[Rfam]
RNA sequence: AUAAAUCUUCAGGGCAGAGUGAAAUUCUCUACUGGCGGUAUACUCCGCGAACCUACGGGCCGAAUCGGUGAAACUCCGAUAGCAACAGUUAAAGUCUGGAUGAAAGAAGAGUUUU
Numbered sequence: 001a002u003a004a005a006u007c008u009u010c011a012g013g014g015c016a017g018a019g020u021g022a023a024a025u026u027c028u029c030u031a032c033u034g035g036c037g038g039u040a041u042a043c044u045c046c047g048c049g050a051a052c053c054u055a056c057g058g059g060c061c062g063a064a065u066c067g068g069u070g071a072a073a074c075u076c077c078g079a080u081a082g083c084a085a086c087a088g089u090u091a092a093a094g095u096c097u098g099g100a101u102g103a104a105a106g107a108a109g110a111g112u113u114u115u
Base pairs, nucleotide, nucleotide: 003113004112006110007109008108009107010106017029018028019027031095032094033084034083035048036047037046038045043082044081052059053058064080065079066078067077068076086098087097088096
The record is a 115-nucleotide RNA from Dubosiella newyorkensis, which matches "FMN riboswitch aptamer (RFN element)" in Rfam.
Taxonomically the source falls in Dubosiella (Bacteria, Bacillati, Erysipelotrichia, Erysipelotrichaceae).
Gene Ontology term of the family: FMN binding.
It scores 102 bits against the family's covariance model.
Rfam's curators write: The RFN element is a highly conserved domain that is found frequently in the 5'-untranslated regions of prokaryotic mRNAs that encode for flavin mononucleotide (FMN) biosynthesis and transport proteins.